[Rfam]
RNA sequence: AUGAAGGUAAAGGGAGAGAUCGGGUACUGCCCGGCGCCGAAGGAGCAAGCAGUGAUGUGAAUCUCUCAGGCAAAAAGACUUUUACGUGACG
Numbered sequence: 001a002u003g004a005a006g007g008u009a010a011a012g013g014g015a016g017a018g019a020u021c022g023g024g025u026a027c028u029g030c031c032c033g034g035c036g037c038c039g040a041a042g043g044a045g046c047a048a049g050c051a052g053u054g055a056u057g058u059g060a061a062u063c064u065c066u067c068a069g070g071c072a073a074a075a076a077g078a079c080u081u082u083u084a085c086g087u088g089a090c091g
Stems, first nucleotide, its partner, number of pairs: 007085007020034004036071003039067002043065003049058002